[Rfam]
RNA sequence: AAAUAGCCCCGAUAGCAGCGAAAAUCCUUUACGGUGGCGGCAGCCAAAAGCAAAGAUUGUAGCGUAUAGCGGGAGUACGC
Numbered sequence: 001a002a003a004u005a006g007c008c009c010c011g012a013u014a015g016c017a018g019c020g021a022a023a024a025u026c027c028u029u030u031a032c033g034g035u036g037g038c039g040g041c042a043g044c045c046a047a048a049a050g051c052a053a054a055g056a057u058u059g060u061a062g063c064g065u066a067u068a069g070c071g072g073g074a075g076u077a078c079g080c
Base pairs, nucleotide, nucleotide: 009072010071011070013068014067018063019062023058024057025056026055029053030052032050